mir-1910 microRNA precursor family: an 80-nucleotide sequence from Macaca mulatta. The family has 2 seed sequences and 23 matches in Rfam 15.1. Pairs were carried over by alignment from the consensus structure, which was predicted with RNAalifold. The source organism's lineage runs through Eukaryota, Haplorrhini, Simiiformes, Cercopithecidae and Macaca. Its family is annotated with miRNA-mediated post-transcriptional gene silencing and RISC complex in the Gene Ontology. A search with the family's covariance model found it, with a score of 83 bits.
RNA sequence: CAUCCUCUCAGCCAGUCCUGUGUCCACUGCCUCCGCGCUGUCCUGGGAGGGAGGCAGAAGCAGGAUGACAACGAGGGCAA
Numbered sequence: 001c002a003u004c005c006u007c008u009c010a011g012c013c014a015g016u017c018c019u020g021u022g023u024c025c026a027c028u029g030c031c032u033c034c035g036c037g038c039u040g041u042c043c044u045g046g047g048a049g050g051g052a053g054g055c056a057g058a059a060g061c062a063g064g065a066u067g068a069c070a071a072c073g074a075g076g077g078c079a080a
Base pairs, nucleotide, nucleotide: 005077006076007075008074009073015066016065017064018063019062020061021060027054028053030051031050032049034047